[Rfam]
RNA: mir-17 microRNA precursor family
RNA sequence: CCUGGGUGUCAAAAGUGCUGUUUGUGCAGGUAGUCACUUGCCCUACUGCAAAACCAGCACUUCAGGCACACGGG
Numbered sequence: 001c002c003u004g005g006g007u008g009u010c011a012a013a014a015g016u017g018c019u020g021u022u023u024g025u026g027c028a029g030g031u032a033g034u035c036a037c038u039u040g041c042c043c044u045a046c047u048g049c050a051a052a053a054c055c056a057g058c059a060c061u062u063c064a065g066g067c068a069c070a071c072g073g074g
Stems, first nucleotide, its partner, number of pairs: 004071001006069002009066002013062008022053002025050003029047005